[Rfam]
RNA sequence: AAAACAUAGAACAAAAAAUAAGCGUAGUGAUACUACUAGGAACCACCUCCUUGGCCAGCUCAAUCUCCCUUGAGCUGGCUUUUCU
Numbered sequence: 001a002a003a004a005c006a007u008a009g010a011a012c013a014a015a016a017a018a019u020a021a022g023c024g025u026a027g028u029g030a031u032a033c034u035a036c037u038a039g040g041a042a043c044c045a046c047c048u049c050c051u052u053g054g055c056c057a058g059c060u061c062a063a064u065c066u067c068c069c070u071u072g073a074g075c076u077g078g079c080u081u082u083u084c085u
Stems, first nucleotide, its partner, number of pairs: 038051004053080011
Rfam assigns this 85-nucleotide RNA sequence from Pectobacterium atrosepticum to the family "CyaR/Rye RNA". The family's RNA type in Rfam is small RNA. From the family's description: This sRNA was originally identified in a large scale screen of E. coli. It was shown to bind Hfq and called RyeE. This sRNA has since been characterised as a post-transcriptional regulator of the 18 kDa OmpX porin in Salmonella. A reference for the family is Wassarman et al. (2001), "Identification of novel small RNAs using comparative genomics and microarrays", Genes Dev. Taxonomically the source falls in Pectobacterium atrosepticum (Bacteria, Pseudomonadati, Pseudomonadota, Gammaproteobacteria). The sequence is in the family's curated seed alignment.